[Rfam]
RNA sequence: AAUUACUUGAGCCAAGGGAAUGCAAACUGUAAAUUUUGUAUUGCAAAAAGUUUGUUCGUUUGGCUUAAGUUAUUU
Numbered sequence: 001a002a003u004u005a006c007u008u009g010a011g012c013c014a015a016g017g018g019a020a021u022g023c024a025a026a027c028u029g030u031a032a033a034u035u036u037u038g039u040a041u042u043g044c045a046a047a048a049a050g051u052u053u054g055u056u057c058g059u060u061u062g063g064c065u066u067a068a069g070u071u072a073u074u075u
Stems, first nucleotide, its partner, number of pairs: 001074003005070009018057001022055004027050002
Dot-bracket structure: (((.(((((((((....(...((((.((....................)).)))).)....))))))))).))).
RNA: mir-375 microRNA precursor family
Organism: Scaptodrosophila lebanonensis